[Rfam]
RNA sequence: ACCAGGAUGGCCGAGGGGUUAAGGCGUUGGACUUAAGAUCCAAUGGAGUUGUGGGUUCGUACCCCACUCCUGGUA
Numbered sequence: 001a002c003c004a005g006g007a008u009g010g011c012c013g014a015g016g017g018g019u020u021a022a023g024g025c026g027u028u029g030g031a032c033u034u035a036a037g038a039u040c041c042a043a044u045g046g047a048g049u050u051g052u053g054g055g056u057u058c059g060u061a062c063c064c065c066a067c068u069c070c071u072g073g074u075a
Base pairs, nucleotide, nucleotide: 001074002073003072004071005070006069007068010025011024012023027043028042029041030040031039051067052066053065054064055063
Rfam assigns this 75-nucleotide sequence from Muraenolepis orangiensis to the family "tRNA".
The family is grouped with related families in Rfam's "tRNA clan".
Rfam describes the family as follows. Transfer RNA (tRNA) molecules are approximately 80 nucleotides in length.
The match comes from Rfam's covariance-model search (59 bits).
Pairs were carried over by alignment from the consensus structure, which is taken from published work.
Rfam classes the family as a transfer RNA.